A member of the RNA family "Bacterial large signal recognition particle RNA" from Mangrovibacillus cuniculi, 264 nucleotides long.
The family's consensus secondary structure is taken from published work.
A search with the family's covariance model found it, with a score of 240 bits.
Lineage of the source: Bacteria > Bacillota > Bacilli > Caryophanales > Mangrovibacillus.

[Rfam]
RNA sequence: CCGUGCUAGGUGGGGAGGUAGCGGUGCCCUGCACCCGCAAUCCGCUCUAGCGGGACUGAAUCCCUUUCCGAGGUCACUCUUCUGUAAGGCUGCCUCAAGUAAGUGGUGUUGACGUCUGGGUCCUGCGCAAUGAGAAUCCACGAACCAUGUCAGGUCCGGAAGGAAGCAGCAUUAAGUGGAAUCUCUCAUGUGCCGCAGGAGUGCCUGGGCCGAGCUAACUGCUUGAGUAACGCUUAUGGAAAGUGAUCGACGAGAGGUGCACGG
Numbered sequence: 001c002c003g004u005g006c007u008a009g010g011u012g013g014g015g016a017g018g019u020a021g022c023g024g025u026g027c028c029c030u031g032c033a034c035c036c037g038c039a040a041u042c043c044g045c046u047c048u049a050g051c052g053g054g055a056c057u058g059a060a061u062c063c064c065u066u067u068c069c070g071a072g073g074u075c076a077c078u079c080u081u082c083u084g085u086a087a088g089g090c091u092g093c094c095u096c097a098a099g100u101a102a103g104u105g106g107u108g109u110u111g112a113c114g115u116c117u118g119g120g121u122c123c124u125g126c127g128c129a130a131u132g133a134g135a136a137u138c139c140a141c142g143a144a145c146c147a148u149g150u151c152a153g154g155u156c157c158g159g160a161a162g163g164a165a166g167c168a169g170c171a172u173u174a175a176g177u178g179g180a181a182u183c184u185c186u187c188a189u190g191u192g193c194c195g196c197a198g199g200a201g202u203g204c205c206u207g208g209g210c211c212g213a214g215c216u217a218a219c220u221g222c223u224u225g226a227g228u229a230a231c232g233c234u235u236a237u238g239g240a241a242a243g244u245g246a247u248c249g250a251c252g253a254g255a256g257g258u259g260c261a262c263g264g
Base pairs, nucleotide, nucleotide: 001264002263003262004261005260006259009057010056011055012030013029014028015027017025019023034054035053036052037051038050063257064256065255066254067253068252072248073247074246075245076244080241081240082239083238084237085236086235087234088233091229092228095226096225097224098223099222100221103219104218105216106215107214114210115209116208117207118206119205120204121203122199123198124197125196126195127194128190129189131188132187133186134185135184137180138179139178140177141176147172148171149170150169155164156163157162